Overview: The record is an 85-nucleotide RNA sequence from Congzhengia minquanensis, which matches "S10-Clostridia ribosomal protein leader" in Rfam. On this family, see Eckert and Weinberg, BMC Microbiol 2020: "Discovery of 20 novel ribosomal leader candidates in bacteria and archaea". It scores 42 bits against the family's covariance model. The family's consensus secondary structure is taken from published work. NCBI's taxonomy places the organism under Bacteria, Bacillati, Clostridia, Oscillospiraceae, Congzhengia.
RNA sequence: GGCAUACGAGGAAGUGGGAGGUUGCCGCGCACAAAUAAGCGGGUUUUUCCAUGGAGAAUGUCCGAUUCAUGAAACCGGGCGACAG
Numbered sequence: 001g002g003c004a005u006a007c008g009a010g011g012a013a014g015u016g017g018g019a020g021g022u023u024g025c026c027g028c029g030c031a032c033a034a035a036u037a038a039g040c041g042g043g044u045u046u047u048u049c050c051a052u053g054g055a056g057a058a059u060g061u062c063c064g065a066u067u068c069a070u071g072a073a074a075c076c077g078g079g080c081g082a083c084a085g
Base pairs, nucleotide, nucleotide: 014052015051016050018049019048020047021046025042026041027040028039059084060083061082062081066079067078068077